[Rfam]
RNA sequence: GGAUGUGAGCGCCAUCUGGCUGCGACAUCUGUCACCCCAUUGAUCGCCAGGGUUGAUUCGGCUGAUCUGGCUGGCUAGGCGGGUGUCCCCUUCCUCCCUCACUGCUCCAUGUGCAUCCCUCCCGAAGCUGCGCGCUCGGUCGAAGAGGACGACCUUCCCCGCUAGAGGAGGACCGGUCUUUGGGUUCGGUCAAGGGUAUACGAGUAGCUGCGCUCCCCUGCUAGAACCUCCAAACAAGCUCUCAAGGUCCAAAUAGUCACGUCAGACUGAUGUUGCCACUACACUUGCCGUCUGGGUGAAGGGACUGGUUCCUGCCGGUUCCUGCUC
Numbered sequence: 001g002g003a004u005g006u007g008a009g010c011g012c013c014a015u016c017u018g019g020c021u022g023c024g025a026c027a028u029c030u031g032u033c034a035c036c037c038c039a040u041u042g043a044u045c046g047c048c049a050g051g052g053u054u055g056a057u058u059c060g061g062c063u064g065a066u067c068u069g070g071c072u073g074g075c076u077a078g079g080c081g082g083g084u085g086u087c088c089c090c091u092u093c094c095u096c097c098c099u100c101a102c103u104g105c106u107c108c109a110u111g112u113g114c115a116u117c118c119c120u121c122c123c124g125a126a127g128c129u130g131c132g133c134g135c136u137c138g139g140u141c142g143a144a145g146a147g148g149a150c151g152a153c154c155u156u157c158c159c160c161g162c163u164a165g166a167g168g169a170g171g172a173c174c175g176g177u178c179u180u181u182g183g184g185u186u187c188g189g190u191c192a193a194g195g196g197u198a199u200a201c202g203a204g205u206a207g208c209u210g211c212g213c214u215c216c217c218c219u220g221c222u223a224g225a226a227c228c229u230c231c232a233a234a235c236a237a238g239c240u241c242u243c244a245a246g247g248u249c250c251a252a253a254u255a256g257u258c259a260c261g262u263c264a265g266a267c268u269g270a271u272g273u274u275g276c277c278a279c280u281a282c283a284c285u286u287g288c289c290g291u292c293u294g295g296g297u298g299a300a301g302g303g304a305c306u307g308g309u310u311c312c313u314g315c316c317g318g319u320u321c322c323u324g325c326u327c
Stems, first nucleotide, its partner, number of pairs: 001108003005102005011096001014092001018090002024087010035074002037070003042067004046062003116171002118168004122139004127135002141161002147158003207273002214266001217265001220262002228256002298327001301323003304319005